[Rfam]
RNA sequence: UUCUUUGGGGUGAAAGCUUUAAAUGUAACUUAAGUACUAAUUUAUUUUAACACACUCCUAUGUAAUUCGUGCAUUACUGCUAGCCAACAUGAAUAUUAUAUA
Numbered sequence: 001u002u003c004u005u006u007g008g009g010g011u012g013a014a015a016g017c018u019u020u021a022a023a024u025g026u027a028a029c030u031u032a033a034g035u036a037c038u039a040a041u042u043u044a045u046u047u048u049a050a051c052a053c054a055c056u057c058c059u060a061u062g063u064a065a066u067u068c069g070u071g072c073a074u075u076a077c078u079g080c081u082a083g084c085c086a087a088c089a090u091g092a093a094u095a096u097u098a099u100a101u102a
Base pairs, nucleotide, nucleotide: 002093004091006089007088009085010084015078016077019033020032021031022030024028034055035054038049039048040047060074061073062072063071064070
Dot-bracket structure: .(.(.((.((....((..((((.(...).))))((..(((......)))....))....(((((.....)))))..)).....))..)).).).........
Description
Shown here is a 102-nucleotide RNA from Macaca mulatta, a member of the family "Mitochondrial DNA control region secondary structure A". The family's consensus secondary structure is taken from published work. The organism belongs to Macaca, within Eukaryota. The literature on the family includes a 2008 paper in Mol Biol Evol by Pereira et al., "Evidence for variable selective pressures at a large secondary structure of the human mitochondrial DNA control region".